[Rfam]
RNA sequence: CAGCUUGCAGAAAUAGGGAAAUACCCCAUUUUCUUUGGAGUAGGAAUGUAUCCAGAACACACUACACUAAAAGAGGAGUUCUCGGGGCUGCCAGCCUUCUAGUAGAGGUUGGGUGGUAGUAUAUUUCUCCUACAGAA
Numbered sequence: 001c002a003g004c005u006u007g008c009a010g011a012a013a014u015a016g017g018g019a020a021a022u023a024c025c026c027c028a029u030u031u032u033c034u035u036u037g038g039a040g041u042a043g044g045a046a047u048g049u050a051u052c053c054a055g056a057a058c059a060c061a062c063u064a065c066a067c068u069a070a071a072a073g074a075g076g077a078g079u080u081c082u083c084g085g086g087g088c089u090g091c092c093a094g095c096c097u098u099c100u101a102g103u104a105g106a107g108g109u110u111g112g113g114u115g116g117u118a119g120u121a122u123a124u125u126u127c128u129c130c131u132a133c134a135g136a137a
Base pairs, nucleotide, nucleotide: 003062006059007058022042023041024040026038027037075130076129077128078127087117088116091113092111093110094109095108096107097106098105
The family of this 137-nucleotide RNA from Rattus norvegicus is "Small nucleolar RNA U109". The family has 26 seed sequences and 1,405 matches in Rfam 15.1. The source organism's lineage runs through Eukaryota, Opisthokonta, Amniota, Euarchontoglires and Rattus. Rfam links the family to the GO terms nucleolus and RNA processing. The family's consensus secondary structure was predicted with WAR.